[Rfam]
RNA sequence: GGUGGAGAGUUCCAAAGGGAUCGCAUUGAUCCAAUGUUGGUCGAUGUCGAAGAUCGUUUAUUGGAUCAUGCGAUCUCUUAGGAAUCUUCCAU
Numbered sequence: 001g002g003u004g005g006a007g008a009g010u011u012c013c014a015a016a017g018g019g020a021u022c023g024c025a026u027u028g029a030u031c032c033a034a035u036g037u038u039g040g041u042c043g044a045u046g047u048c049g050a051a052g053a054u055c056g057u058u059u060a061u062u063g064g065a066u067c068a069u070g071c072g073a074u075c076u077c078u079u080a081g082g083a084a085u086c087u088u089c090c091a092u
Stems, first nucleotide, its partner, number of pairs: 002092005009085005015079007023071004028067009
RNA: mir-393 microRNA precursor family